[Rfam]
The record is an 87-nucleotide sequence from Mesobacillus subterraneus, which matches "BsrC" in Rfam. Rfam's curators write: The 301 nucleotide sequence from Kouji Nakamura has been trimmed to a highly conserved ~85 nucleotide long core to form this family. The family's consensus secondary structure was predicted with CMfinder. Rfam classes the family as a small RNA.
RNA sequence: UUUAACCUAAACGACACAAGCCCUACCUCUCUUGUAUCCUUACGGCUCCGAAGCCGAUCCAGUGUGAAUAAGUUGUUACCUAAAAAU
Dot-bracket structure: ..................................((..((..(((((....)))))....))..)).....................